[Rfam]
RNA sequence: UGGAUGUGAUGACUGAUUAUCUGAAAAGCUGAUGAAAUUUGCCAAAGUCCUCUAGAUAGUCAAGUGCUGAUCCAG
Numbered sequence: 001u002g003g004a005u006g007u008g009a010u011g012a013c014u015g016a017u018u019a020u021c022u023g024a025a026a027a028g029c030u031g032a033u034g035a036a037a038u039u040u041g042c043c044a045a046a047g048u049c050c051u052c053u054a055g056a057u058a059g060u061c062a063a064g065u066g067c068u069g070a071u072c073c074a075g
Stems, first nucleotide, its partner, number of pairs: 001074004
Dot-bracket structure: ((((..................................................................)))).
RNA: Small nucleolar RNA SNORD20